A member of the RNA family "Nuclear RNase P" from Kluyveromyces lactis, 374 nucleotides long. The source organism's lineage runs through Eukaryota, saccharomyceta, Saccharomycotina, Saccharomycetales and Kluyveromyces. Rfam classes the family as a ribozyme. It scores 58 bits against the family's covariance model.

RNA sequence: UGAGAAGAGGUCAUGUGAUUUGAAUGUUCUACUUGAUCAGAGGAGUUGUUCUCCUCAUUCCAGGUGGGAAAUUCGGUGGAACGCAGCUGUCCGCUCGCCGAGGGUUCAAACCCCCGGUGAGUUAUAAUCAAGCAAAUCCCUAACGGGAUUUUCGCUUCGUGAGAAGGUUGUUUCUAAUGGAACUUCAGCUUGAGCCCUAUUGUCGUUGUUAUAAUAAAUCAAGUCGCCAGUUCUUCUCUAAUGGAGACCACGUGACAUGGGAGGGACAACGGACGGACAGUUUAGCUUGUCAUUUACGACAAUGCCUAGUUGAGUGCAAUGCAGGGAGUCUGCAACUUACGCAGAUAACACAAUACCGAUUACCUUGUGUCUGA
Numbered sequence: 001u002g003a004g005a006a007g008a009g010g011u012c013a014u015g016u017g018a019u020u021u022g023a024a025u026g027u028u029c030u031a032c033u034u035g036a037u038c039a040g041a042g043g044a045g046u047u048g049u050u051c052u053c054c055u056c057a058u059u060c061c062a063g064g065u066g067g068g069a070a071a072u073u074c075g076g077u078g079g080a081a082c083g084c085a086g087c088u089g090u091c092c093g094c095u096c097g098c099c100g101a102g103g104g105u106u107c108a109a110a111c112c113c114c115c116g117g118u119g120a121g122u123u124a125u126a127a128u129c130a131a132g133c134a135a136a137u138c139c140c141u142a143a144c145g146g147g148a149u150u151u152u153c154g155c156u157u158c159g160u161g162a163g164a165a166g167g168u169u170g171u172u173u174c175u176a177a178u179g180g181a182a183c184u185u186c187a188g189c190u191u192g193a194g195c196c197c198u199a200u201u202g203u204c205g206u207u208g209u210u211a212u213a214a215u216a217a218a219u220c221a222a223g224u225c226g227c228c229a230g231u232u233c234u235u236c237u238c239u240a241a242u243g244g245a246g247a248c249c250a251c252g253u254g255a256c257a258u259g260g261g262a263g264g265g266a267c268a269a270c271g272g273a274c275g276g277a278c279a280g281u282u283u284a285g286c287u288u289g290u291c292a293u294u295u296a297c298g299a300c301a302a303u304g305c306c307u308a309g310u311u312g313a314g315u316g317c318a319a320u321g322c323a324g325g326g327a328g329u330c331u332g333c334a335a336c337u338u339a340c341g342c343a344g345a346u347a348a349c350a351c352a353a354u355a356c357c358g359a360u361u362a363c364c365u366u367g368u369g370u371c372u373g374a
Stems, first nucleotide, its partner, number of pairs: 001374001003372002005366003011326002014323003031065005040056006074358005089278004136149005204271007223256005328346006